Overview
The record is a 59-nucleotide sequence, which matches "Glutamine-II riboswitch aptamer" in Rfam. The literature on the family includes a 2019 paper in Nucleic Acids Res by Huang et al., "Structure and ligand binding of the glutamine-II riboswitch".
RNA sequence: AUACGUUCAGCUCAAUUUAAAGCUGCAGUAAGACUCGAGACAUGGAACGGGGUCUUGGG
Numbered sequence: 001a002u003a004c005g006u007u008c009a010g011c012u013c014a015a016u017u018u019a020a021a022g023c024u025g026c027a028g029u030a031a032g033a034c035u036c037g038a039g040a041c042a043u044g045g046a047a048c049g050g051g052g053u054c055u056u057g058g059g
Base pairs, nucleotide, nucleotide: 004049005048006047007046008045010023011022012021034059035058036057037056038055039054040053041052